[Rfam]
RNA sequence: GGAAGAUCGUCGUCUCCGGUGAGACGAUUGGACUUCAUUUCCAGUGGCAGCCGCCUGCGGCUCCCGGCAGGUUCGACUCCUGCGAUCUCC
Numbered sequence: 001g002g003a004a005g006a007u008c009g010u011c012g013u014c015u016c017c018g019g020u021g022a023g024a025c026g027a028u029u030g031g032a033c034u035u036c037a038u039u040u041c042c043a044g045u046g047g048c049a050g051c052c053g054c055c056u057g058c059g060g061c062u063c064c065c066g067g068c069a070g071g072u073u074c075g076a077c078u079c080c081u082g083c084g085a086u087c088u089c090c
Stems, first nucleotide, its partner, number of pairs: 002090001004088006011026006027045006047064001049062003068082004

This 90-nucleotide RNA from Kluyvera genomosp. 3 belongs to the Rfam family "Selenocysteine transfer RNA".
Gene Ontology term of the family: triplet codon-amino acid adaptor activity.
NCBI's taxonomy places the organism under Bacteria, Pseudomonadati, Pseudomonadota, Gammaproteobacteria, Kluyvera.
A search with the family's covariance model found it, with a score of 63 bits.
The family's consensus secondary structure is taken from published work.